[Rfam]
RNA sequence: CCACCAGUUAAGUGAAUGCUUUGCCACAGUCUUAGACAUUGUAAGCUGGGCCGAGGUUCGCUUAGGCUGGAGG
Numbered sequence: 001c002c003a004c005c006a007g008u009u010a011a012g013u014g015a016a017u018g019c020u021u022u023g024c025c026a027c028a029g030u031c032u033u034a035g036a037c038a039u040u041g042u043a044a045g046c047u048g049g050g051c052c053g054a055g056g057u058u059c060g061c062u063u064a065g066g067c068u069g070g071a072g073g
Stems, first nucleotide, its partner, number of pairs: 004070003009064009019055003023051003027048003
mir-86 microRNA precursor family: a 73-nucleotide RNA from Haemonchus contortus. Lineage of the source: Eukaryota > Metazoa > Protostomia > Rhabditida > Haemonchus. Pairs were carried over by alignment from the consensus structure, which was predicted with RNAalifold. For this family Rfam cites "An abundant class of tiny RNAs with probable regulatory roles in Caenorhabditis elegans" (Lau et al., Science, 2001). The sequence is in the family's curated seed alignment.